[Rfam]
RNA sequence: AGACAUACACAUCUCCGAGCCGUUCCGCCUGUCGGGUUACCCCGUGGCGGGCGGUCAAUGGGCACUGCGGGAAACGGCUGCGCCUCCCUUUUGGAAAGGAGACCCGAUAGCGAUAUG
Numbered sequence: 001a002g003a004c005a006u007a008c009a010c011a012u013c014u015c016c017g018a019g020c021c022g023u024u025c026c027g028c029c030u031g032u033c034g035g036g037u038u039a040c041c042c043c044g045u046g047g048c049g050g051g052c053g054g055u056c057a058a059u060g061g062g063c064a065c066u067g068c069g070g071g072a073a074a075c076g077g078c079u080g081c082g083c084c085u086c087c088c089u090u091u092u093g094g095a096a097a098g099g100a101g102a103c104c105c106g107a108u109a110g111c112g113a114u115a116u117g
Base pairs, nucleotide, nucleotide: 004110012102013101014100015099016098019055020054021053022052023051025050026049027048028047029046033044034043035042036041060085061084062083063082065080067078068077070075086094087093

Overview: This 117-nucleotide RNA from Oryzomonas rubra belongs to the Rfam family "Molybdenum/Tungsten riboswitch aptamer (Moco RNA motif)". Taxonomically the source falls in Oryzomonas (Bacteria, Desulfuromonadia, Geobacterales, Geobacteraceae). Its family is annotated with tungstate binding, molybdenum ion binding and regulation of gene expression in the Gene Ontology. Pairs were carried over by alignment from the consensus structure, which is taken from published work.